RNA sequence: CUCUCAGUAGCUCAGUGGCAGAGCGUUCGACUGUAGAAUAUGUAGAUAUCGAAUGGUCACAGGUUCGACUCCUGUCUGGGAGA
Numbered sequence: 001c002u003c004u005c006a007g008u009a010g011c012u013c014a015g016u017g018g019c020a021g022a023g024c025g026u027u028c029g030a031c032u033g034u035a036g037a038a039u040a041u042g043u044a045g046a047u048a049u050c051g052a053a054u055g056g057u058c059a060c061a062g063g064u065u066c067g068a069c070u071c072c073u074g075u076c077u078g079g080g081a082g083a
Stems, first nucleotide, its partner, number of pairs: 001082007010024004026053005059075005
This 83-nucleotide RNA from Vairimorpha ceranae belongs to the Rfam family "tRNA". From the family's description: Transfer RNA (tRNA) molecules are approximately 80 nucleotides in length. Their secondary structure includes four short double-helical elements and three loops (D, anti-codon, and T loops). Further hydrogen bonds mediate the characteristic L-shaped molecular structure. tRNAs have two regions of fundamental functional importance: the anti-codon, which is responsible for specific mRNA codon recognition, and the 3' end, to which the tRNAs corresponding amino acid is attached (by aminoacyl-tRNA synthetases). tRNAs cope with the degeneracy of the genetic code in two manners: having more than one tRNA (with a specific anti-codon) for a particular amino acid; and 'wobble' base-pairing, i.e. permitting non-standard base-pairing at the 3rd anti-codon position. By type it is a transfer RNA.